[Rfam]
RNA sequence: CAGAGAAGUCAAUGAUGGCUUUACCCAACAUGUCUGAACCUGUCUGAUGCAUCUCAGUGAUGUGAUCUGUGUGGUUCUGAGACUUCUCUAAGU
Dot-bracket structure: ...(((((((......................................................................)))))))......

Shown here is a 93-nucleotide sequence from Catagonus wagneri, a member of the family "Small nucleolar RNA SNORD91 family". The pairing is the family consensus, mapped onto this sequence. The family has 24 seed sequences and 977 matches in Rfam 15.1. The source organism's lineage runs through Eukaryota, Chordata, Vertebrata, Amniota and Catagonus. Its family is annotated with nucleolus and RNA processing in the Gene Ontology.